RNA sequence: UGAUGAUAGGGUCAAAAGGUCAUAAUGUAUUCAUGCUCGCAUGAUAUACAUUAUGACUUUGAGACCCGCAAAAACAUGAGGAAAAAGCAUUUGCGCGGAUUCCGAAUGUUUUUAGACUCGCGAGAGUUACUUGUAACGGAGCAAGUCGUAUCAUCA
Numbered sequence: 001u002g003a004u005g006a007u008a009g010g011g012u013c014a015a016a017a018g019g020u021c022a023u024a025a026u027g028u029a030u031u032c033a034u035g036c037u038c039g040c041a042u043g044a045u046a047u048a049c050a051u052u053a054u055g056a057c058u059u060u061g062a063g064a065c066c067c068g069c070a071a072a073a074a075c076a077u078g079a080g081g082a083a084a085a086a087g088c089a090u091u092u093g094c095g096c097g098g099a100u101u102c103c104g105a106a107u108g109u110u111u112u113u114a115g116a117c118u119c120g121c122g123a124g125a126g127u128u129a130c131u132u133g134u135a136a137c138g139g140a141g142c143a144a145g146u147c148g149u150a151u152c153a154u155c156a
Stems, first nucleotide, its partner, number of pairs: 001156007010066004016060015031044005070113008080103004087096002115147004120142002126137004
RNA: Clostridiales-1 RNA
Organism: Butyrivibrio sp. YAB3001